[Rfam]
RNA sequence: GAUUGUUGGCCCUUCGGAGUCGCCCUGCGGGGGGUGGCUUCAAACCGCCACAUGCUGCGGGAUCGGUGACGUGAUCGUGGUGAGCGAUGUGGAAAAGGCGCAGGUGGAUGCGUCAGGU
Numbered sequence: 001g002a003u004u005g006u007u008g009g010c011c012c013u014u015c016g017g018a019g020u021c022g023c024c025c026u027g028c029g030g031g032g033g034g035u036g037g038c039u040u041c042a043a044a045c046c047g048c049c050a051c052a053u054g055c056u057g058c059g060g061g062a063u064c065g066g067u068g069a070c071g072u073g074a075u076c077g078u079g080g081u082g083a084g085c086g087a088u089g090u091g092g093a094a095a096a097g098g099c100g101c102a103g104g105u106g107g108a109u110g111c112g113u114c115a116g117g118u
Stems, first nucleotide, its partner, number of pairs: 001015002005011001016041006023034004046117001048092006054081002057078003064071001097114006

Description
A member of the RNA family "Group II catalytic intron D1-D4-2" from Mycobacterium talmoniae, 118 nucleotides long. For this family Rfam cites "The ins and outs of group II introns" (Bonen and Vogel, Trends Genet, 2001). A search with the family's covariance model found it, with a score of 85 bits. Group II introns are found in rRNA, tRNA and mRNA of organelles in fungi, plants and protists, and also in mRNA in bacteria. Its family is annotated with Group II intron splicing in the Gene Ontology. NCBI's taxonomy places the organism under Bacteria, Bacillati, Actinomycetota, Mycobacteriaceae, Mycobacterium.